Background:
Rfam assigns this 320-nucleotide RNA sequence from Oxobacter pfennigii to the family "Bacterial RNase P class B". The family is grouped with related families in Rfam's "RNaseP clan". The family's RNA type in Rfam is ribozyme. A search with the family's covariance model found it, with a score of 198 bits. Ribonuclease P (RNase P) is a ubiquitous endoribonuclease, found in archaea, bacteria and eukarya as well as chloroplasts and mitochondria. Its family is annotated with tRNA processing, ribonuclease P activity and dimeric ribonuclease P complex in the Gene Ontology. Pairs were carried over by alignment from the consensus structure, which is taken from published work. For this family Rfam cites "The Ribonuclease P Database" (Brown, Nucleic Acids Res, 1999). NCBI's taxonomy places the organism under Bacteria, Bacillota, Clostridia, Clostridiaceae, Oxobacter.
RNA sequence: UAAUACAGACAAUCGCUAUGGCAACAUAGAGGAAAGUCCACACUGCCGCAGGCUGAGAUGCCUGCGCCAAUAGGAUUGAGCCUCUCGCAAGGGAGGGCGGGGCAACCCGACGGCGGAGAAAAUGCACUCACUGAGGCAUGAGUAUCCUGAAAGUGCAACAGAGACGAGCUUUUCCGGCGACGGAGAAGGUGGAACGUUUGUAAACCCCUCAAUGCAGAAACCCAAAUUAAGGUAGGGGAACCCCCUCAAGGGAAUAAAACUAGCGGGGGACCAGAAAUGGUAGACAGAUGAUUGUCCGCGACAGAAAGUGGCUUACCGUA
Numbered sequence: 001u002a003a004u005a006c007a008g009a010c011a012a013u014c015g016c017u018a019u020g021g022c023a024a025c026a027u028a029g030a031g032g033a034a035a036g037u038c039c040a041c042a043c044u045g046c047c048g049c050a051g052g053c054u055g056a057g058a059u060g061c062c063u064g065c066g067c068c069a070a071u072a073g074g075a076u077u078g079a080g081c082c083u084c085u086c087g088c089a090a091g092g093g094a095g096g097g098c099g100g101g102g103c104a105a106c107c108c109g110a111c112g113g114c115g116g117a118g119a120a121a122a123u124g125c126a127c128u129c130a131c132u133g134a135g136g137c138a139u140g141a142g143u144a145u146c147c148u149g150a151a152a153g154u155g156c157a158a159c160a161g162a163g164a165c166g167a168g169c170u171u172u173u174c175c176g177g178c179g180a181c182g183g184a185g186a187a188g189g190u191g192g193a194a195c196g197u198u199u200g201u202a203a204a205c206c207c208c209u210c211a212a213u214g215c216a217g218a219a220a221c222c223c224a225a226a227u228u229a230a231g232g233u234a235g236g237g238g239a240a241c242c243c244c245c246u247c248a249a250g251g252g253a254a255u256a257a258a259a260c261u262a263g264c265g266g267g268g269g270a271c272c273a274g275a276a277a278u279g280g281u282a283g284a285c286a287g288a289u290g291a292u293u294g295u296c297c298g299c300g301a302c303a304g305a306a307a308g309u310g311g312c313u314u315a316c317c318g319u320a
Stems, first nucleotide, its partner, number of pairs: 004320003008296007016029005034314003038311004043217004048065006076212005081096006097111001098109004112207002115147003122139004127135003153205002155201003169188008221237003241269005247263001270281004